[Rfam]
Nucleotides: 134
Stems, first nucleotide, its partner, number of pairs: 006122005011084004016078001017071004090115004096109004
Number, partner (000 for none) and nucleotide at each position: 001000g002000g003000c004000u005000c006122a007121c008120g009119c010118u011084a012083g013082g014081g015000g016078u017071c018070c019069c020068g021000c022000a023000g024000a025000a026000a027000u028000c029000u030000g031000c032000g033000g034000c035000g036000u037000u038000c039000a040000c041000g042000a043000g044000a045000g046000c047000g048000c049000c050000g051000c052000a053000g054000u055000c056000c057000g058000g059000c060000a061000u062000g063000c064000c065000g066000g067000a068020c069019g070018g071017g072000u073000g074000a075000g076000a077000a078016a079000g080000a081014c082013c083012c084011u085000u086000g087000g088000a089000a090115c091114c092113u093112g094000a095000u096109c097108g098107a099106g100000u101000u102000a103000a104000g105000a106099c107098u108097u109096g110000c111000g112093c113092a114091g115090g116000g117000a118010a119009g120008c121007g122006u123000c124000g125000a126000a127000g128000a129000c130000a131000g132000g133000g134000u

Rfam assigns this 134-nucleotide sequence from Quisquiliibacterium transsilvanicum to the family "TPP riboswitch aptamer (THI element)". From the family's description: Vitamin B(1) in its active form thiamin pyrophosphate (TPP) is an essential coenzyme that is synthesised by coupling of pyrimidine and thiazole moieties in bacteria. The base pairs follow the family's consensus structure, which is taken from published work.